[Rfam]
RNA sequence: CUCUGGUGAUGAGCCUGCCAUGCUAAUACCGAUGCACCAGGCAGACGCUGGUCUCUCUGGGUGUGCGUGAGUUCAACUCGCCUCCUCAUGCUGUGACUCAGUGUGCUCUGAAGAGA
Numbered sequence: 001c002u003c004u005g006g007u008g009a010u011g012a013g014c015c016u017g018c019c020a021u022g023c024u025a026a027u028a029c030c031g032a033u034g035c036a037c038c039a040g041g042c043a044g045a046c047g048c049u050g051g052u053c054u055c056u057c058u059g060g061g062u063g064u065g066c067g068u069g070a071g072u073u074c075a076a077c078u079c080g081c082c083u084c085c086u087c088a089u090g091c092u093g094u095g096a097c098u099c100a101g102u103g104u105g106c107u108c109u110g111a112a113g114a115g116a
Stems, first nucleotide, its partner, number of pairs: 001115004043054004
The record is a 116-nucleotide sequence from Denticeps clupeoides, which matches "Small nucleolar RNA U6-53/MBII-28" in Rfam. The match comes from Rfam's covariance-model search (64 bits). The source organism's lineage runs through Eukaryota, Gnathostomata, Teleostomi, Osteoglossocephalai and Denticeps. On this family, see Huttenhofer et al., EMBO J 2001: "RNomics: an experimental approach that identifies 201 candidates for novel, small, non-messenger RNAs in mouse".